[Rfam]
Small nucleolar RNA SNORD58: a 67-nucleotide RNA sequence from Pangasianodon hypophthalmus. Gene Ontology terms of the family: RNA processing and nucleolus. The literature on the family includes a 2002 paper in Mol Cell Biol by Galardi et al., "Purified box C/D snoRNPs are able to reproduce site-specific 2'-O-methylation of target RNA in vitro". The family has 33 seed sequences and 2,484 matches in Rfam 15.1. It is annotated as a C/D-box small nucleolar RNA. About the family: snoRNA U58 is found in introns 1, 3 and 6 of the ribosomal protein RPL17 gene in humans. Clan: SNORD58 clan.

Nucleotides: 067
Base pairs, nucleotide, nucleotide: 001066002065003064004063
Number, partner (000 for none) and nucleotide at each position: 001066u002065u003064g004063c005000a006000g007000u008000g009000a010000u011000g012000a013000c014000c015000a016000u017000c018000u019000u020000a021000g022000g023000a024000c025000a026000c027000c028000u029000u030000u031000g032000g033000a034000a035000a036000u037000a038000a039000a040000c041000a042000u043000g044000a045000a046000a047000c048000a049000a050000c051000c052000u053000a054000u055000c056000a057000g058000u059000c060000u061000g062000a063004g064003c065002a066001a067000c